[Rfam]
RNA sequence: CCGAUCACGGGUGAUGGAGUUCCACCUUUAACCGCUCAUCAUUGAGAUAAUGACUCCUGCUGUAGU
Numbered sequence: 001c002c003g004a005u006c007a008c009g010g011g012u013g014a015u016g017g018a019g020u021u022c023c024a025c026c027u028u029u030a031a032c033c034g035c036u037c038a039u040c041a042u043u044g045a046g047a048u049a050a051u052g053a054c055u056c057c058u059g060c061u062g063u064a065g066u
Stems, first nucleotide, its partner, number of pairs: 010026004016057006035046003

Source information: Rfam assigns this 66-nucleotide RNA sequence from Photobacterium jeanii to the family "Fluoride riboswitch aptamer (crcB RNA motif)". Taxonomically the source falls in Photobacterium (Bacteria, Pseudomonadati, Gammaproteobacteria, Vibrionaceae). Its family is annotated with response to fluoride and positive regulation of gene expression in the Gene Ontology.